[Rfam]
RNA sequence: GUCAUGGACCCCGGCAUGCAUGCUGGGGCUUGCAGGCAUCCUCACCGGUGUCUGUAGGCCCGAACAUGACCAGACCCAGCCACCGACGCUGAUGCGUGCAUCAACGUUGAUGGGGCUCCGUUCUCAGGGAGUGUCAAAGAUCGUACCUGCGCGUGCGAGGCCAGCGUGCAGCUCUCCAACCGGCGGGUUAAACAGGGCGUGGGUAUACCCAGUGCUCGUCGGAUGUGCCGCCUGAGAACAUCGUCGAGGCCACCAUUAC
Numbered sequence: 001g002u003c004a005u006g007g008a009c010c011c012c013g014g015c016a017u018g019c020a021u022g023c024u025g026g027g028g029c030u031u032g033c034a035g036g037c038a039u040c041c042u043c044a045c046c047g048g049u050g051u052c053u054g055u056a057g058g059c060c061c062g063a064a065c066a067u068g069a070c071c072a073g074a075c076c077c078a079g080c081c082a083c084c085g086a087c088g089c090u091g092a093u094g095c096g097u098g099c100a101u102c103a104a105c106g107u108u109g110a111u112g113g114g115g116c117u118c119c120g121u122u123c124u125c126a127g128g129g130a131g132u133g134u135c136a137a138a139g140a141u142c143g144u145a146c147c148u149g150c151g152c153g154u155g156c157g158a159g160g161c162c163a164g165c166g167u168g169c170a171g172c173u174c175u176c177c178a179a180c181c182g183g184c185g186g187g188u189u190a191a192a193c194a195g196g197g198c199g200u201g202g203g204u205a206u207a208c209c210c211a212g213u214g215c216u217c218g219u220c221g222g223a224u225g226u227g228c229c230g231c232c233u234g235a236g237a238a239c240a241u242c243g244u245c246g247a248g249g250c251c252a253c254c255a256u257u258a259c
Stems, first nucleotide, its partner, number of pairs: 001070006010028002012025002015022002029036002073245003078117004120239009143177001147171008157253001159251004180222009192213002195210003199206002
RNA: HNH endonuclease-associated RNA and ORF (HEARO) RNA
Organism: Ktedonobacter racemifer